[Rfam]
RNA sequence: CGGGAGAGCCGGCGGACAUUCCGCUCGCCAACCCGGUCAGGUCCGAAAGGAAGCAGCCGUAACGAGUUUGGCAUGGGUCGCAUUGGCCCUCCCACCC
Numbered sequence: 001c002g003g004g005a006g007a008g009c010c011g012g013c014g015g016a017c018a019u020u021c022c023g024c025u026c027g028c029c030a031a032c033c034c035g036g037u038c039a040g041g042u043c044c045g046a047a048a049g050g051a052a053g054c055a056g057c058c059g060u061a062a063c064g065a066g067u068u069u070g071g072c073a074u075g076g077g078u079c080g081c082a083u084u085g086g087c088c089c090u091c092c093c094a095c096c097c
Stems, first nucleotide, its partner, number of pairs: 004093001006091003009086004014081001017075003021071002023067005034059004042051003
About this RNA
Bacterial small signal recognition particle RNA: a 97-nucleotide RNA sequence from Kordiimonas lacus. Clan: SRP clan. On this family, see Rosenblad et al., Nucleic Acids Res 2003: "SRPDB: Signal Recognition Particle Database". Rfam links the family to the GO terms SRP-dependent cotranslational protein targeting to membrane, signal sequence recognition and signal recognition particle, plasma membrane targeting. About the family: The signal recognition particle (SRP) is a universally conserved ribonucleoprotein involved in the co-translational targeting of proteins to membranes. The source organism's lineage runs through Bacteria, Pseudomonadati, Pseudomonadota, Kordiimonadaceae and Kordiimonas.